Alphaproteobacterial ar14: a 123-nucleotide RNA sequence from Rhizobium sp. PDO1-076.
Rfam links the family to the GO term biological process involved in symbiotic interaction.
Rfam describes the family as follows. Smr14C2 was renamed NfeR1 (Nodule Formation Efficiency RNA) highly expressed in salt stress and during the symbiotic interaction on legume roots.
Lineage of the source: Bacteria > Pseudomonadati > Pseudomonadota > Alphaproteobacteria > Rhizobium.
A search with the family's covariance model found it, with a score of 108 bits.
The pairing is the family consensus, mapped onto this sequence.

[Rfam]
RNA sequence: GUGUUUCAGGCGACCCACUCCUCCUCCCAGGGGAGCCUGUAGGAACAGCGGCACUCCUCCUCCCAGUCGCUGUUCAUCCAUUCGAAAAGCCUGCCGCACCUCCUCCCGCGGCAGGCUUUUUCG
Numbered sequence: 001g002u003g004u005u006u007c008a009g010g011c012g013a014c015c016c017a018c019u020c021c022u023c024c025u026c027c028c029a030g031g032g033g034a035g036c037c038u039g040u041a042g043g044a045a046c047a048g049c050g051g052c053a054c055u056c057c058u059c060c061u062c063c064c065a066g067u068c069g070c071u072g073u074u075c076a077u078c079c080a081u082u083c084g085a086a087a088a089g090c091c092u093g094c095c096g097c098a099c100c101u102c103c104u105c106c107c108g109c110g111g112c113a114g115g116c117u118u119u120u121u122c123g
Base pairs, nucleotide, nucleotide: 007039008038009037010036011035014032015031016030043075044074045073046072047071048070049069050068051067052066087118088117089116090115091114092113093112094111095110096109097108